Rfam assigns this 305-nucleotide RNA sequence from Elachura formosa to the family "7SK RNA".
Rfam's curators write: 7SK was discovered as an abundant small nuclear RNA in the mid-70s but a possible function has only recently been suggested. Two independent studies have found that 7SK RNA binds the CDK9/cyclin T complex (known as elongation factor P-TEFb). P-TEFb activates transcription by phosphorylating the C-terminal domain of RNA polymerase II. This process is negatively regulated by the 7SK RNP. The secondary structure of 7SK RNA shown here was proposed by Wasserman and Steitz on the basis of chemical modification and enzymatic cleavage experiments.
Pairs were carried over by alignment from the consensus structure, which is taken from published work.
[Rfam]
RNA sequence: GGAUAUGAGGCUAAUCUGGCUGUGAGGUCUGGUUGCAUGGGUUGAUCUGACUGAUCUGUCUAGUUUAGGCAGGUGUUCCUUCCUUCUUUGACAUUCCUCUCAAUGCUGUAUGCUUUAUUAAUGAGGACAGCCUCCCCAAUAGUCAUGGUGCUGUUCACUGGUCAAGGGUAGGUAGUAGCAGUGCUCCCCUGCUGGAAGCUCUAAGCUCAAUGGUCCAUUUGUAGAUGAAUGCAGGGUAGUCAAGAAUCCAGUACCGAAGACAUAGCCAAACAAGAAGCUGCAUUCAUCAGUCUGCCAGUGGCUUU
Numbered sequence: 001g002g003a004u005a006u007g008a009g010g011c012u013a014a015u016c017u018g019g020c021u022g023u024g025a026g027g028u029c030u031g032g033u034u035g036c037a038u039g040g041g042u043u044g045a046u047c048u049g050a051c052u053g054a055u056c057u058g059u060c061u062a063g064u065u066u067a068g069g070c071a072g073g074u075g076u077u078c079c080u081u082c083c084u085u086c087u088u089u090g091a092c093a094u095u096c097c098u099c100u101c102a103a104u105g106c107u108g109u110a111u112g113c114u115u116u117a118u119u120a121a122u123g124a125g126g127a128c129a130g131c132c133u134c135c136c137c138a139a140u141a142g143u144c145a146u147g148g149u150g151c152u153g154u155u156c157a158c159u160g161g162u163c164a165a166g167g168g169u170a171g172g173u174a175g176u177a178g179c180a181g182u183g184c185u186c187c188c189c190u191g192c193u194g195g196a197a198g199c200u201c202u203a204a205g206c207u208c209a210a211u212g213g214u215c216c217a218u219u220u221g222u223a224g225a226u227g228a229a230u231g232c233a234g235g236g237u238a239g240u241c242a243a244g245a246a247u248c249c250a251g252u253a254c255c256g257a258a259g260a261c262a263u264a265g266c267c268a269a270a271c272a273a274g275a276a277g278c279u280g281c282a283u284u285c286a287u288c289a290g291u292c293u294g295c296c297a298g299u300g301g302c303u304u305u
Stems, first nucleotide, its partner, number of pairs: 001097003006090005014081001018079002024077002027074005033063002035059003040056004044051001098148001099142001100117001102115002105113002118139002125135003179244001184239002187236006199227001202224001205222002209218001268305003274296001277291004